[Rfam]
RNA sequence: UUCUUAUUGGAUGAUGACUGUCACGUGUCAUAUUCUGAUUGGAUGUCAAAUCAUGGAAGAUGAAAUGCAUUAUUGGUGUCAUUGGUCAAUCAGAACAUGGCACGUGACAGUCCUGAUAA
Numbered sequence: 001u002u003c004u005u006a007u008u009g010g011a012u013g014a015u016g017a018c019u020g021u022c023a024c025g026u027g028u029c030a031u032a033u034u035c036u037g038a039u040u041g042g043a044u045g046u047c048a049a050a051u052c053a054u055g056g057a058a059g060a061u062g063a064a065a066u067g068c069a070u071u072a073u074u075g076g077u078g079u080c081a082u083u084g085g086u087c088a089a090u091c092a093g094a095a096c097a098u099g100g101c102a103c104g105u106g107a108c109a110g111u112c113c114u115g116a117u118a119a
Stems, first nucleotide, its partner, number of pairs: 020108004025103002029099003033095004038090003
This 119-nucleotide RNA from Glycine soja belongs to the Rfam family "MIR1520 microRNA precursor family". Taxonomically the source falls in Glycine subgen. Soja (Eukaryota, Viridiplantae, fabids, Glycine).